Overview: A member of the RNA family "SAM riboswitch aptamer (S box leader)" from Staphylococcus saprophyticus, 109 nucleotides long. The family's consensus secondary structure is taken from published work.
RNA sequence: AACUUAUCCAGAGAAGUUGAGGGAAUUGGCCCUGUGAAGCUUCAGCAACAGACUUUGUAAAGAAGUACUGUGCUUCGUCCAACAAGUAAUACUACUUGAAAGAUAGGUG
Numbered sequence: 001a002a003c004u005u006a007u008c009c010a011g012a013g014a015a016g017u018u019g020a021g022g023g024a025a026u027u028g029g030c031c032c033u034g035u036g037a038a039g040c041u042u043c044a045g046c047a048a049c050a051g052a053c054u055u056u057g058u059a060a061a062g063a064a065g066u067a068c069u070g071u072g073c074u075u076c077g078u079c080c081a082a083c084a085a086g087u088a089a090u091a092c093u094a095c096u097u098g099a100a101a102g103a104u105a106g107g108u109g
Stems, first nucleotide, its partner, number of pairs: 002108007013043005021032003026082004044074004049070002052066004078101001083098005